[Rfam]
RNA sequence: AAAAACUCCACGGGAGUUGAACUCCCAUGGGUUUCAGUCCAUUUUCUAGAGAGCCAACUCUCGUAAAAAUUUUUAUUGCAACUCCACGGGAUUCAACUCCCGUGGAGUUGUA
Numbered sequence: 001a002a003a004a005a006c007u008c009c010a011c012g013g014g015a016g017u018u019g020a021a022c023u024c025c026c027a028u029g030g031g032u033u034u035c036a037g038u039c040c041a042u043u044u045u046c047u048a049g050a051g052a053g054c055c056a057a058c059u060c061u062c063g064u065a066a067a068a069a070u071u072u073u074u075a076u077u078g079c080a081a082c083u084c085c086a087c088g089g090g091a092u093u094c095a096a097c098u099c100c101c102g103u104g105g106a107g108u109u110g111u112a
Base pairs, nucleotide, nucleotide: 004109005108006107007106009104011102012101013100014099015098017096018095019094023091024090025089026088028086029085030084033081034080035078036077037076038075
This 112-nucleotide sequence from Asparagus officinalis belongs to the Rfam family "mir-998 microRNA precursor family". The source organism's lineage runs through Eukaryota, Streptophyta, Tracheophyta, Asparagales and Asparagus. A search with the family's covariance model found it, with a score of 52 bits. Rfam 15.1 lists 83 matches to the family in 63 species.